Rfam assigns this 83-nucleotide RNA from Streptomyces acidiscabies to the family "ZMP/ZTP riboswitch aptamer (pfl RNA motif)". The family's consensus secondary structure is taken from published work. The match comes from Rfam's covariance-model search (61 bits). For this family Rfam cites "Recognition of the bacterial alarmone ZMP through long-distance association of two RNA subdomains" (Jones and Ferre-D'Amare, Nat Struct Mol Biol, 2015).

[Rfam]
RNA sequence: GCCCCGGGCCGUGACUGGCGCUGAGGUGGAUCACCACCGGGGAGCGGCCCGGCCGACUGAUGCCGCGCGCCUGGGCGAUGAAC
Numbered sequence: 001g002c003c004c005c006g007g008g009c010c011g012u013g014a015c016u017g018g019c020g021c022u023g024a025g026g027u028g029g030a031u032c033a034c035c036a037c038c039g040g041g042g043a044g045c046g047g048c049c050c051g052g053c054c055g056a057c058u059g060a061u062g063c064c065g066c067g068c069g070c071c072u073g074g075g076c077g078a079u080g081a082a083c
Stems, first nucleotide, its partner, number of pairs: 004052009015041002017071005026037004061077004
NCBI's taxonomy places the organism under Bacteria, Bacillati, Actinomycetota, Actinomycetes, Streptomyces.